[Rfam]
RNA sequence: GCCGAGCCUAGUAACGUGGGCUUGUGACCUGAGUAGGGGCAUCAAGGUGAUUGAACGUUUGGCUGGUCCAGUUGGCUGGGCUCUGGUUGCUAAGUUCUGACCCGCCCGUUCCAAGCGGGGAGUUGGGCCAUGUGGAUCAGGCGAAGACUUGGGCCUCGUGGCCUUUAGGGCGGAGGGCACCGCGUCAGGCUGGCUUCACAGAGCAGCGACUACCUCCCGCUCUCUGCAGUGGAAGGACAACGGGCCGGUGCAACUUGCGUUCGGUAAAGCCCUUUGGGCCAGUCCUAAUUGGACAUUCACCUUU
Numbered sequence: 001g002c003c004g005a006g007c008c009u010a011g012u013a014a015c016g017u018g019g020g021c022u023u024g025u026g027a028c029c030u031g032a033g034u035a036g037g038g039g040c041a042u043c044a045a046g047g048u049g050a051u052u053g054a055a056c057g058u059u060u061g062g063c064u065g066g067u068c069c070a071g072u073u074g075g076c077u078g079g080g081c082u083c084u085g086g087u088u089g090c091u092a093a094g095u096u097c098u099g100a101c102c103c104g105c106c107c108g109u110u111c112c113a114a115g116c117g118g119g120g121a122g123u124u125g126g127g128c129c130a131u132g133u134g135g136a137u138c139a140g141g142c143g144a145a146g147a148c149u150u151g152g153g154c155c156u157c158g159u160g161g162c163c164u165u166u167a168g169g170g171c172g173g174a175g176g177g178c179a180c181c182g183c184g185u186c187a188g189g190c191u192g193g194c195u196u197c198a199c200a201g202a203g204c205a206g207c208g209a210c211u212a213c214c215u216c217c218c219g220c221u222c223u224c225u226g227c228a229g230u231g232g233a234a235g236g237a238c239a240a241c242g243g244g245c246c247g248g249u250g251c252a253a254c255u256u257g258c259g260u261u262c263g264g265u266a267a268a269g270c271c272c273u274u275u276g277g278g279c280c281a282g283u284c285c286u287a288a289u290u291g292g293a294c295a296u297u298c299a300c301c302u303u304u
Stems, first nucleotide, its partner, number of pairs: 001040003004023007028037003044303007052295002056291002058288002061284006068277004074271004078262004083257001085255001087253003091250002097248003101244004106236002109234005115227009125164008134155002137152005165170001172217005183208003190201003
Rfam assigns this 304-nucleotide RNA sequence from Phtheirospermum japonicum to the family "Plant signal recognition particle RNA". Gene Ontology terms of the family: SRP-dependent cotranslational protein targeting to membrane, signal sequence recognition and signal recognition particle, endoplasmic reticulum targeting. The match comes from Rfam's covariance-model search (244 bits). The family's RNA type in Rfam is non-coding RNA gene. Taxonomically the source falls in Phtheirospermum (Eukaryota, Streptophyta, Spermatophyta, lamiids).